[Rfam]
A member of the RNA family "TPP riboswitch aptamer (THI element)" from Halomonas sp. GFAJ-1, 93 nucleotides long. The base pairs follow the family's consensus structure, which is taken from published work. The source organism's lineage runs through Bacteria, Gammaproteobacteria, Oceanospirillales, Halomonadaceae and Halomonas.
Nucleotides: 093
Base pairs, nucleotide, nucleotide: 006081007080008079009078010077011043012042013041014040016037017030018029019028020027021026049074050073051072052071055068056067057066058065
Number, partner (000 for none) and nucleotide at each position: 001000g002000c003000c004000c005000g006081a007080c008079g009078a010077c011043a012042g013041g014040g015000g016037c017030g018029c019028c020027g021026u022000u023000a024000u025000g026021a027020c028019g029018g030017c031000u032000g033000a034000g035000a036000a037016g038000c039000a040014c041013c042012c043011u044000u045000u046000g047000a048000a049074c050073c051072u052071g053000a054000a055068c056067c057066g058065g059000a060000u061000a062000a063000c064000a065058c066057c067056g068055g069000c070000g071052u072051a073050g074049g075000g076000a077010g078009u079008c080007g081006u082000g083000g084000u085000g086000c087000c088000c089000c090000u091000a092000c093000a